Annotation: The family of this 115-nucleotide RNA sequence from Bombilactobacillus mellis is "Ribosomal protein L20 leader". The literature on the family includes a 1994 paper in Prog Nucleic Acid Res Mol Biol by Zengel and Lindahl, "Diverse mechanisms for regulating ribosomal protein synthesis in Escherichia coli". The match comes from Rfam's covariance-model search (59 bits). Rfam links the family to the GO term regulation of gene expression. About the family: This family is a putative r-protein leader autoregulatory structure found in B. subtilis and other low-GC Gram-positive bacteria. Pairs were carried over by alignment from the consensus structure, which was predicted with CMfinder.

[Rfam]
RNA sequence: GUUUAAAAGCAGAAGCUCCCGCUUCUCACCCAUGCAAUUUUUGCCUCUGGGUUUUAAAGAAUAAUCGACUAGAUAUUAUUUGCGGGCGCUUUUGCGCCCGCAUUUUUGUGAGUGA
Numbered sequence: 001g002u003u004u005a006a007a008a009g010c011a012g013a014a015g016c017u018c019c020c021g022c023u024u025c026u027c028a029c030c031c032a033u034g035c036a037a038u039u040u041u042u043g044c045c046u047c048u049g050g051g052u053u054u055u056a057a058a059g060a061a062u063a064a065u066c067g068a069c070u071a072g073a074u075a076u077u078a079u080u081u082g083c084g085g086g087c088g089c090u091u092u093u094g095c096g097c098c099c100g101c102a103u104u105u106u107u108g109u110g111a112g113u114g115a
Stems, first nucleotide, its partner, number of pairs: 011026006028052003034044002081102009